[Rfam]
This 132-nucleotide RNA sequence from Salmonella enterica belongs to the Rfam family "Salmonella enterica conserved region STnc30". NCBI's taxonomy places the organism under Bacteria, Enterobacterales, Salmonella, Salmonella enterica subsp. enterica, Salmonella enterica subsp. enterica serovar Typhi. It is one of the family's seed sequences.
RNA sequence: AUCUUAAGAAUUUCUUUUGAUAUUCAAUGUGCGACAGGAAAAAUAAGGCGUAGUCGUCAUCCGGUGCUAAUGCCCCACCUUUUUGCUAUUCAUCUAGAAAAACCGCACAAUCGUUGCUGGUUUUUGGGUUGU
Numbered sequence: 001a002u003c004u005u006a007a008g009a010a011u012u013u014c015u016u017u018u019g020a021u022a023u024u025c026a027a028u029g030u031g032c033g034a035c036a037g038g039a040a041a042a043a044u045a046a047g048g049c050g051u052a053g054u055c056g057u058c059a060u061c062c063g064g065u066g067c068u069a070a071u072g073c074c075c076c077a078c079c080u081u082u083u084u085g086c087u088a089u090u091c092a093u094c095u096a097g098a099a100a101a102a103c104c105g106c107a108c109a110a111u112c113g114u115u116g117c118u119g120g121u122u123u124u125u126g127g128g129u130u131g132u
Base pairs, nucleotide, nucleotide: 008025009024010023011022013020014019031086032085033084034083036080037079038078047058048057049056050055066073067072094128095127097125098124099123100122101121103119105117106116107115